[Rfam]
RNA sequence: GGGCUGGCAAUAUAGCUCAGCGGUUCCUUCUUAACACUUUCUAUGAAGAAACUAACCCUCUCGGGGGUUCGAUACCCGCGGGUGCUAACCAGCCUUUUA
Numbered sequence: 001g002g003g004c005u006g007g008c009a010a011u012a013u014a015g016c017u018c019a020g021c022g023g024u025u026c027c028u029u030c031u032u033a034a035c036a037c038u039u040u041c042u043a044u045g046a047a048g049a050a051a052c053u054a055a056c057c058c059u060c061u062c063g064g065g066g067g068u069u070c071g072a073u074a075c076c077c078g079c080g081g082g083u084g085c086u087a088a089c090c091a092g093c094c095u096u097u098u099a
Stems, first nucleotide, its partner, number of pairs: 002094006015083004020079004029072002
Annotation:
Rfam assigns this 99-nucleotide RNA sequence from Hymenochirus boettgeri to the family "Vault RNA". By type it is a non-coding RNA gene. Rfam 15.1 lists 2,873 matches to the family in 431 species. The match comes from Rfam's covariance-model search (68 bits). The source organism's lineage runs through Eukaryota, Deuterostomia, Chordata, Tetrapoda and Hymenochirus.